[Rfam]
The record is a 165-nucleotide sequence from Gossypium arboreum, which matches "MIR530 microRNA precursor family" in Rfam. It scores 96 bits against the family's covariance model. NCBI's taxonomy places the organism under Eukaryota, malvids, Malvaceae, Malvoideae, Gossypium. On this family, see Lu et al., Plant J 2008: "Stress-responsive microRNAs in Populus".

RNA sequence: GCUAAGAUGUAGCCUUUAUCUGCAUUUGCACCUGCACCUUCUUGUUUAAUUCUCUGCUUCAGAAGCCAAAUGUGUUUGUUUGUGAUGUUGAUGAAAAUAGAAUAGGACUAAAACAAAAAAUAAUAAUAAGGUGCAGGUGCAGGCGCAGCUGAAUGCCAUUUUGGC
Numbered sequence: 001g002c003u004a005a006g007a008u009g010u011a012g013c014c015u016u017u018a019u020c021u022g023c024a025u026u027u028g029c030a031c032c033u034g035c036a037c038c039u040u041c042u043u044g045u046u047u048a049a050u051u052c053u054c055u056g057c058u059u060c061a062g063a064a065g066c067c068a069a070a071u072g073u074g075u076u077u078g079u080u081u082g083u084g085a086u087g088u089u090g091a092u093g094a095a096a097a098u099a100g101a102a103u104a105g106g107a108c109u110a111a112a113a114c115a116a117a118a119a120a121u122a123a124u125a126a127u128a129a130g131g132u133g134c135a136g137g138u139g140c141a142g143g144c145g146c147a148g149c150u151g152a153a154u155g156c157c158a159u160u161u162u163g164g165c
Stems, first nucleotide, its partner, number of pairs: 001165009012156002015153004020148004025143015